[Rfam]
RNA: Hfq-regulated sRNA 21
RNA sequence: AGAUUAUCCAAAACUAUCUGGUAUUGGCUACUAUGUAAGCCAUGUUCAGACCGGAUCGUGUCAUGAUCAUGAUACUCAUCAGGAUGGUGCCAACCCGCCCGGCAUGCGCCCGUCACUCUGUACCCUGCACACAAU
Dot-bracket structure: .................(.((((((((((........)))))........((.(((.(((((((....)))))))..))).))..(((((...((.....))...))))).........))).)).)........